Shown here is a 141-nucleotide sequence from Capsicum annuum, a member of the family "MIR7993 microRNA precursor family".
A search with the family's covariance model found it, with a score of 105 bits.
RNA sequence: UUAAGUUAACCACAUAAAAUAUGUCAUCUUCUUUAACUAUACUCAUCACCUCAAGUAAAAAAAGCUUGUCACUUUUUGGGUUUAUUGAGGUGAAUGCGUAUAACUAAAGGAAAUGAUAUAUUUUAUGUGGUUGACUUAACU
Number, nucleotide and partner (000 for none) at each position: 001u139002u138003a137004a136005g135006u134007u133008a132009a131010c130011c129012a128013c127014a126015u125016a124017a123018a122019a121020u120021a119022u118023g117024u116025c115026a000027u000028c000029u111030u110031c109032u108033u107034u106035a105036a000037c000038u102039a101040u100041a099042c098043u000044c096045a095046u094047c000048a091049c090050c089051u088052c087053a086054a085055g000056u000057a000058a000059a000060a000061a000062a000063a000064g000065c000066u000067u000068g000069u000070c000071a000072c000073u000074u000075u000076u000077u000078g000079g000080g000081u000082u000083u000084a000085u054086u053087g052088a051089g050090g049091u048092g000093a000094a046095u045096g044097c000098g042099u041100a040101u039102a038103a000104c000105u035106a034107a033108a032109g031110g030111a029112a000113a000114u000115g025116a024117u023118a022119u021120a020121u019122u018123u017124u016125a015126u014127g013128u012129g011130g010131u009132u008133g007134a006135c005136u004137u003138a002139a001140c000141u000
Its family is annotated with miRNA-mediated post-transcriptional gene silencing and RISC complex in the Gene Ontology. The organism belongs to Capsicum, within Eukaryota.